Shown here is a 79-nucleotide RNA from Electrophorus electricus, a member of the family "mir-147 microRNA precursor family".
On this family, see Ahn et al., Mol Hum Reprod 2010: "MicroRNA transcriptome in the newborn mouse ovaries determined by massive parallel sequencing".
The family's consensus secondary structure was predicted with RNAalifold.
[Rfam]
RNA sequence: CACCAGUCUCGCGGAAUCCUUUCUGCACAGACUCGCGCUCUCAGACUCAGUGUGCGGAAAUGCUUCUGCUGUAUUGGUG
Numbered sequence: 001c002a003c004c005a006g007u008c009u010c011g012c013g014g015a016a017u018c019c020u021u022u023c024u025g026c027a028c029a030g031a032c033u034c035g036c037g038c039u040c041u042c043a044g045a046c047u048c049a050g051u052g053u054g055c056g057g058a059a060a061u062g063c064u065u066c067u068g069c070u071g072u073a074u075u076g077g078u079g
Base pairs, nucleotide, nucleotide: 001079002078004076005075006074007073009071011069012068013067014066015065016064018062020060021059022058023057024056025055026054027053028052029051032050033049